[Rfam]
RNA sequence: CCAUGCUAGGUGGGGAGUUGGCGGUUCCCUAUACCCGAAAUCCGCCAUACGCGGGGCUGAAGACUUCCUGAGGCAACAUCUGGUUGUUUCACGGAGUGCAGGAAGGUGUUGAUAGUCGGGUCCCACGCAACAGAAACUUGUGAACCUGGUCAGAUCCGGAAGGAAGCAGCCAUAAGCAAGUAGUUCUGUGUGCCGUGGGAGUGCUCGGCUUGAGCUGGAAUGUACCACCUGAGCAGUCAGUGUUGUCGAAGGAAGGAGCAUGG
Number, nucleotide and partner (000 for none) at each position: 001c263002c262003a261004u260005g259006c258007u257008a000009g058010g057011u056012g030013g029014g028015g027016a026017g025018u024019u023020g000021g000022c000023g019024g018025u017026u016027c015028c014029c013030u012031a000032u000033a000034c055035c054036c053037g052038a000039a000040a000041u000042c000043c000044g000045c000046c000047a000048u000049a000050c000051g000052c037053g036054g035055g034056g011057c010058u009059g000060a000061a000062g000063a000064c255065u254066u253067c252068c251069u250070g000071a000072g247073g246074c245075a244076a243077c000078a000079u000080c240081u239082g238083g237084u236085u235086g234087u233088u232089u231090c000091a000092c000093g229094g228095a000096g225097u224098g223099c222100a221101g000102g000103a000104a000105g216106g215107u214108g000109u000110u000111g000112a000113u000114a210115g209116u208117c207118g206119g205120g204121u203122c199123c198124c197125a196126c195127g194128c190129a189130a000131c188132a187133g186134a185135a184136a181137c180138u179139u178140g177141u176142g000143a000144a000145c000146c000147u172148g171149g170150u169151c000152a000153g000154a000155u164156c163157c162158g000159g000160a000161a000162g157163g156164a155165a000166g000167c000168a000169g150170c149171c148172a147173u000174a000175a000176g141177c140178a139179a138180g137181u136182a000183g000184u135185u134186c133187u132188g131189u129190g128191u000192g000193c000194c127195g126196u125197g124198g123199g122200a000201g000202u000203g121204c120205u119206c118207g117208g116209c115210u114211u000212g000213a000214g107215c106216u105217g000218g000219a000220a000221u100222g099223u098224a097225c096226c000227a000228c094229c093230u000231g089232a088233g087234c086235a085236g084237u083238c082239a081240g080241u000242g000243u076244u075245g074246u073247c072248g000249a000250a069251g068252g067253a066254a065255g064256g000257a007258g006259c005260a004261u003262g002263g001
A member of the RNA family "Bacterial large signal recognition particle RNA" from Kosmotoga sp., 263 nucleotides long. Gene Ontology terms of the family: signal recognition particle, plasma membrane targeting and SRP-dependent cotranslational protein targeting to membrane, signal sequence recognition. The signal recognition particle (SRP) is a universally conserved ribonucleoprotein involved in the co-translational targeting of proteins to membranes. Pairs were carried over by alignment from the consensus structure, which is taken from published work. It scores 180 bits against the family's covariance model.